A member of the RNA family "Alphaproteobacteria transfer-messenger RNA" from Erythrobacter insulae, 342 nucleotides long.
RNA sequence: UCACUUCCAAUUCAUGCCACAAGUCCUAUGUAAGAGGUGUCGGGCAACCGACUAUGGCGAUAAAUUGCUGCGUGCAAUAGGUACAACGGACCCGGGGGCAGUACCCGGCGUCUCCACCAUAACCCUCUGUUAAAAGAGGAUUUUGACGGGGACGAACUAGGAUCGACGUGGACUGAAAAGCGUAGUUUUUGCCCGGGCUGAAAACCCCGUAAAACUGUUCACAACUCAUAAGUGCAAACGAUAACGAAGCACUCGCAAUCGCUGCGUAAUCUGACGGCCUAACGGCCUGAUCUUACAAAGCUAAAGCGCGGUUGGACCGACCGGGCAACAGAACGGAUUCCG
Numbered sequence: 001u002c003a004c005u006u007c008c009a010a011u012u013c014a015u016g017c018c019a020c021a022a023g024u025c026c027u028a029u030g031u032a033a034g035a036g037g038u039g040u041c042g043g044g045c046a047a048c049c050g051a052c053u054a055u056g057g058c059g060a061u062a063a064a065u066u067g068c069u070g071c072g073u074g075c076a077a078u079a080g081g082u083a084c085a086a087c088g089g090a091c092c093c094g095g096g097g098g099c100a101g102u103a104c105c106c107g108g109c110g111u112c113u114c115c116a117c118c119a120u121a122a123c124c125c126u127c128u129g130u131u132a133a134a135a136g137a138g139g140a141u142u143u144u145g146a147c148g149g150g151g152a153c154g155a156a157c158u159a160g161g162a163u164c165g166a167c168g169u170g171g172a173c174u175g176a177a178a179a180g181c182g183u184a185g186u187u188u189u190u191g192c193c194c195g196g197g198c199u200g201a202a203a204a205c206c207c208c209g210u211a212a213a214a215c216u217g218u219u220c221a222c223a224a225c226u227c228a229u230a231a232g233u234g235c236a237a238a239c240g241a242u243a244a245c246g247a248a249g250c251a252c253u254c255g256c257a258a259u260c261g262c263u264g265c266g267u268a269a270u271c272u273g274a275c276g277g278c279c280u281a282a283c284g285g286c287c288u289g290a291u292c293u294u295a296c297a298a299a300g301c302u303a304a305a306g307c308g309c310g311g312u313u314g315g316a317c318c319g320a321c322c323g324g325g326c327a328a329c330a331g332a333a334c335g336g337a338u339u340c341c342g
Stems, first nucleotide, its partner, number of pairs: 039052005056193005067186007082172001084170001086169003092108005109154007194209004199221003203218001309323004314340003318336001
About this RNA: By type it is a non-coding RNA gene. The family's consensus secondary structure is taken from published work. On this family, see Zwieb et al., Nucleic Acids Res 2003: "tmRDB (tmRNA database)".